[Rfam]
RNA: Small nucleolar RNA snoR104
Organism: Cuscuta australis
RNA sequence: GGGGAGCGUCCAGAGACAGAUGACCCUGAUAAAAUCUUCCAAUAUUGAACCUCAUUUUUUGCUUGUGGCACUCGAGAUAGUUCUUCAAGUAUUUACAUUGAGGGACAUAGUA
Numbered sequence: 001g002g003g004g005a006g007c008g009u010c011c012a013g014a015g016a017c018a019g020a021u022g023a024c025c026c027u028g029a030u031a032a033a034a035u036c037u038u039c040c041a042a043u044a045u046u047g048a049a050c051c052u053c054a055u056u057u058u059u060u061g062c063u064u065g066u067g068g069c070a071c072u073c074g075a076g077a078u079a080g081u082u083c084u085u086c087a088a089g090u091a092u093u094u095a096c097a098u099u100g101a102g103g104g105a106c107a108u109a110g111u112a
Stems, first nucleotide, its partner, number of pairs: 001027003007022003052105002061090005067084002070081003
Dot-bracket structure: (((...(((..........)))..)))........................((.......(((((.((.(((......))).)).))))).............)).......